The record is a 68-nucleotide sequence from Danionella cerebrum, which matches "mir-8/mir-141/mir-200 microRNA precursor family" in Rfam. The match comes from Rfam's covariance-model search (56 bits).

Nucleotides: 068
Base pairs, nucleotide, nucleotide: 002067003066005064006063007062009060010058011057012056013055014054015053016052017051018050019049023045024044025043026042027041
Number, partner (000 for none) and nucleotide at each position: 001000a002067u003066u004000u005064g006063u007062g008000u009060c010058u011057u012056a013055c014054c015053a016052g017051g018050c019049a020000c021000g022000c023045u024044u025043a026042g027041a028000u029000g030000u031000u032000g033000g034000u035000a036000c037000u038000c039000a040000g041027u042026c043025u044024a045023a046000u047000a048000c049019u050018g051017c052016c053015u054014g055013g056012u057011a058010a059000u060009g061000c062007c063006a064005u065000c066003a067002a068000u